[Rfam]
RNA: Actinobacteria sRNA Ms_IGR-5
Organism: Antribacter soli
RNA sequence: ACAUGAGAAAGGAGGUGAUCGAAGAGCAUGAAGUUUCUUCGGACCCAUGAGGUGGUCGCGCGCUAGUCGCCGCGCGACGCGUUAGCGUUUCGCGCCCUGAUGAGGGGCGCGCGGGACGGGUAGCGAGUUUCUCGUGACCACCGGAGCCCGCGGGUGCCGUGCACUCGUCCAGCACGGCAGGGAGGUUCGCCUCCGGCCCGCGGGCUCUUCCAU
Numbered sequence: 001a002c003a004u005g006a007g008a009a010a011g012g013a014g015g016u017g018a019u020c021g022a023a024g025a026g027c028a029u030g031a032a033g034u035u036u037c038u039u040c041g042g043a044c045c046c047a048u049g050a051g052g053u054g055g056u057c058g059c060g061c062g063c064u065a066g067u068c069g070c071c072g073c074g075c076g077a078c079g080c081g082u083u084a085g086c087g088u089u090u091c092g093c094g095c096c097c098u099g100a101u102g103a104g105g106g107g108c109g110c111g112c113g114g115g116a117c118g119g120g121u122a123g124c125g126a127g128u129u130u131c132u133c134g135u136g137a138c139c140a141c142c143g144g145a146g147c148c149c150g151c152g153g154g155u156g157c158c159g160u161g162c163a164c165u166c167g168u169c170c171a172g173c174a175c176g177g178c179a180g181g182g183a184g185g186u187u188c189g190c191c192u193c194c195g196g197c198c199c200g201c202g203g204g205c206u207c208u209u210c211c212a213u
Stems, first nucleotide, its partner, number of pairs: 015059005061125005067119001070114003074110003144207012157177006